RNA sequence: AUGAUUGGCUCGGGAGAGACUGAAACCAAGAAUGGCGCCGAAGGGGCAUGCAAAAACUCUCAGGCAAAAGGACCGGACCAGGACG
Numbered sequence: 001a002u003g004a005u006u007g008g009c010u011c012g013g014g015a016g017a018g019a020c021u022g023a024a025a026c027c028a029a030g031a032a033u034g035g036c037g038c039c040g041a042a043g044g045g046g047c048a049u050g051c052a053a054a055a056a057c058u059c060u061c062a063g064g065c066a067a068a069a070g071g072a073c074c075g076g077a078c079c080a081g082g083a084c085g
Stems, first nucleotide, its partner, number of pairs: 006080003010076004020035003037065003040061002044059003
Dot-bracket structure: .....(((.((((......(((..........))).(((((..(((..........))))).))).......)))).))).....
The record is an 85-nucleotide RNA from Firmicutes bacterium CAG:137, which matches "Glycine riboswitch aptamer" in Rfam. Taxonomically the source falls in Bacillota (Bacteria, Bacillati).